[Rfam]
A member of the RNA family "LOOT RNA", 127 nucleotides long. By type it is a small RNA. It is one of the family's seed sequences.
RNA sequence: UGCCUAACCCUCGUGAGAAUAAAAUCUCCGAGGUAUGGCAGAAAAACUAUCCCUAGUAUUAAGCUCAUCGUCAGAGCACUAGGGAUAGUCAUAUCUUGAAAGAGAUGUGGGUGGCCGAGAGGUCAUC
Numbered sequence: 001u002g003c004c005u006a007a008c009c010c011u012c013g014u015g016a017g018a019a020u021a022a023a024a025u026c027u028c029c030g031a032g033g034u035a036u037g038g039c040a041g042a043a044a045a046a047c048u049a050u051c052c053c054u055a056g057u058a059u060u061a062a063g064c065u066c067a068u069c070g071u072c073a074g075a076g077c078a079c080u081a082g083g084g085a086u087a088g089u090c091a092u093a094u095c096u097u098g099a100a101a102g103a104g105a106u107g108u109g110g111g112u113g114g115c116c117g118a119g120a121g122g123u124c125a126u127c
Stems, first nucleotide, its partner, number of pairs: 001040004009033005015028004047088011063077004090109008110127006